Shown here is a 98-nucleotide sequence from Cuneatibacter caecimuris, a member of the family "SAM riboswitch aptamer (S box leader)". The organism belongs to Cuneatibacter, within Bacteria. The match comes from Rfam's covariance-model search (67 bits).

[Rfam]
Nucleotides: 098
Stems, first nucleotide, its partner, number of pairs: 001098008013044005021033003030074001045069004050065002052061003078087003
Number, partner (000 for none) and nucleotide at each position: 001098u002097u003096c004095u005094u006093a007092u008091u009000c010000a011000g012000a013044g014043u015042g016041a017040u018000g019000g020000a021033g022032a023031u024000a025000c026000a027000a028000a029000g030074g031023a032022u033021c034000u035000g036000u037000g038000a039000a040017g041016u042015c043014a044013c045069g046068g047067c048066a049000a050065c051064c052061c053060c054059g055000a056000u057000a058000c059054c060053g061052g062000a063000a064051g065050g066048u067047g068046c069045c070000a071000a072000c073000c074030u075000g076000a077000g078087c079086g080085a081000g082000c083000a084000a085080u086079c087078g088000a089000a090000c091008a092007a093006u094005a095004a096003g097002g098001a